[Rfam]
RNA sequence: GCCGGGGGACGUAGCGCUUCCCUGUAACCCAUGUGGAGGCUGAUGUUGCGGAGAUGUGCAUGAUUCUUCCGGUCUAGCAGCCUGCGUCGAGGGCGUGUCCUCUCUGAGCGCACAGUCGGCAACGGGGCCUCCCUGACGGGGGAUCCUCGUGGCUGCAUGGAUAGCCUGGCACCGCGUGAGGCAGGAAACUGAGCAGCGAAAACGGGCAGCUGCGCGCGGCAGAAGGAUCGCAUGCCUGAGUGGGCGGCUAGGCCACCCGGAAGGUCCUCUGCGGAUCGACCAACGUUUUU
Numbered sequence: 001g002c003c004g005g006g007g008g009a010c011g012u013a014g015c016g017c018u019u020c021c022c023u024g025u026a027a028c029c030c031a032u033g034u035g036g037a038g039g040c041u042g043a044u045g046u047u048g049c050g051g052a053g054a055u056g057u058g059c060a061u062g063a064u065u066c067u068u069c070c071g072g073u074c075u076a077g078c079a080g081c082c083u084g085c086g087u088c089g090a091g092g093g094c095g096u097g098u099c100c101u102c103u104c105u106g107a108g109c110g111c112a113c114a115g116u117c118g119g120c121a122a123c124g125g126g127g128c129c130u131c132c133c134u135g136a137c138g139g140g141g142g143a144u145c146c147u148c149g150u151g152g153c154u155g156c157a158u159g160g161a162u163a164g165c166c167u168g169g170c171a172c173c174g175c176g177u178g179a180g181g182c183a184g185g186a187a188a189c190u191g192a193g194c195a196g197c198g199a200a201a202a203c204g205g206g207c208a209g210c211u212g213c214g215c216g217c218g219g220c221a222g223a224a225g226g227a228u229c230g231c232a233u234g235c236c237u238g239a240g241u242g243g244g245c246g247g248c249u250a251g252g253c254c255a256c257c258c259g260g261a262a263g264g265u266c267c268u269c270u271g272c273g274g275a276u277c278g279a280c281c282a283a284c285g286u287u288u289u290u
Base pairs, nucleotide, nucleotide: 001040002039003038004023005022006021007020008019009018029036030035042287043286044285045284046283047282048281050280053277054276055273056272057271058270060268062266063265065264066263067262068261069260070259071254072253073252074251075250076249077248078247080245081244082243091237092236093235094234095233096232097231098230099226100225103223104222105221106220108217109216110215111214113212114211115210116209117155118154119153120152122150123149124148125147126146127145130143131142132141133140134139157162164207165206166205167204168203175198176197177196182191183190184189
The family of this 290-nucleotide sequence from Gonium pectorale is "Plant signal recognition particle RNA". The family has 63 seed sequences and 4,988 matches in Rfam 15.1. Pairs were carried over by alignment from the consensus structure, which is taken from published work. The match comes from Rfam's covariance-model search (136 bits). Rfam classes the family as a non-coding RNA gene.